This 234-nucleotide RNA sequence from Alteribacillus persepolensis belongs to the Rfam family "T-box leader". Lineage of the source: Bacteria > Bacillota > Bacilli > Caryophanales > Alteribacillus. Uncharged tRNA acts as the effector for transcription antitermination of genes in the T-box leader family.
Nucleotides: 234
Stems, first nucleotide, its partner, number of pairs: 007107002015102004026091005038077002048074008110125005127139003155193013198231004209227005
Number, partner (000 for none) and nucleotide at each position: 001000g002000a003000u004000c005000a006000u007107g008106c009000u010000g011000u012000g013000a014000a015102a016101g017100g018099g019000a020000a021000u022000a023000g024000u025000a026091a027090g028089a029088g030087a031000a032000u033000g034000a035000u036000c037000a038077c039076c040000a041000a042000c043000a044000g045000a046000g047000a048074g049073u050072a051071a052070a053069g054068c055067c056000c057000u058000a059000g060000g061000c062000u063000g064000a065000g066000a067055g068054g069053u070052u071051u072050u073049a074048c075000a076039g077038g078000a079000u080000a081000u082000c083000g084000g085000c086000a087030u088029c089028u090027c091026u092000g093000a094000a095000c096000c097000c098000g099018c100017c101016c102015u103000g104000g105000a106008g107007c108000u109000g110125u111124c112123a113122g114121g115000g116000a117000u118000a119000a120000a121114c122113c123112u124111g125110a126000c127139c128138g129137u130000c131000c132000c133000u134000c135000u136000a137129a138128c139127g140000u141000u142000a143000c144000u145000g146000g147000a148000g149000a150000a151000a152000g153000c154000g155193g156192g157191a158190a159189u160188a161187c162186a163185c164184a165183g166182g167181g168000a169000u170000a171000g172000a173000c174000g175000u176000c177000u178000g179000u180000c181167u182166u183165c184164u185163g186162u187161g188160u189159a190158u191157u192156c193155c194000a195000a196000u197000a198231a199230a200229g201228g202000u203000g204000g205000u206000a207000c208000c209227g210226c211225g212224g213223g214000a215000a216000c217000a218000a219000c220000u221000c222000u223213u224212c225211c226210g227209u228201c229200c230199u231198u232000u233000a234000c